[Rfam]
Rfam assigns this 89-nucleotide RNA from Triticum aestivum to the family "Small nucleolar RNA Z157/R69/R10".
On this family, see Chen et al., Nucleic Acids Res 2003: "The high diversity of snoRNAs in plants: identification and comparative study of 120 snoRNA genes from Oryza sativa".
Rfam classes the family as a C/D-box small nucleolar RNA.
RNA sequence: GAGUGUUGAUGACAUUUAUGUGGACUAGAGUUUCUGAUACUGCCUCUUCAGCAGUACUUUUGAAGACAAACCCUUGGCUGUCUGAGCUC
Numbered sequence: 001g002a003g004u005g006u007u008g009a010u011g012a013c014a015u016u017u018a019u020g021u022g023g024a025c026u027a028g029a030g031u032u033u034c035u036g037a038u039a040c041u042g043c044c045u046c047u048u049c050a051g052c053a054g055u056a057c058u059u060u061u062g063a064a065g066a067c068a069a070a071c072c073c074u075u076g077g078c079u080g081u082c083u084g085a086g087c088u089c
Stems, first nucleotide, its partner, number of pairs: 001089004031065004038056006